RNA: mir-1305 microRNA precursor family
Organism: Orycteropus afer
Nucleotides: 083
Stems, first nucleotide, its partner, number of pairs: 003082001006079007014071002017068001019066004024061002028057002031054002037049004
Number, partner (000 for none) and nucleotide at each position: 001000a002000a003082g004000u005000c006079c007078c008077u009076g010075c011074u012073g013000a014071u015070u016000c017068c018000a019066c020065c021064a022063u023000c024061a025060g026000a027000u028057u029056u030000g031054a032053a033000c034000a035000u036000u037049u038048a039047u040046u041000g042000u043000a044000a045000g046040g047039a048038u049037g050000c051000u052000u053032u054031u055000a056029a057028a058000u059000u060025c061024u062000a063022a064021u065020g066019g067000g068017g069000a070015a071014g072000a073012c074011a075010g076009c077008a078007g079006g080000a081000u082003u083000c